[Rfam]
Plastid-psbA-2 3UTR RNA: a 63-nucleotide sequence. The family's consensus secondary structure was predicted with LocARNA. Rfam's curators write: Plastid psbA-2 is a non-coding RNA (ncRNA) present in plastids. It was identified in inverted repeat sequences in the 3 prime untranslate region (3UTR) of photosystem II quinone-binding protein (psbA).

RNA sequence: AAUAUAAGGAGCAAUAAACUUUUUCUUGGUUUACCAAGAGGGGCUUUUGCUCCUUUAUUUUCU
Numbered sequence: 001a002a003u004a005u006a007a008g009g010a011g012c013a014a015u016a017a018a019c020u021u022u023u024u025c026u027u028g029g030u031u032u033a034c035c036a037a038g039a040g041g042g043g044c045u046u047u048u049g050c051u052c053c054u055u056u057a058u059u060u061u062c063u
Stems, first nucleotide, its partner, number of pairs: 006055009016045001019042003024039005
Notes
The literature on the family includes a 2023 paper in Plant Commun by Richter et al., "Retrograde signaling in plants: A critical review focusing on the GUN pathway and beyond".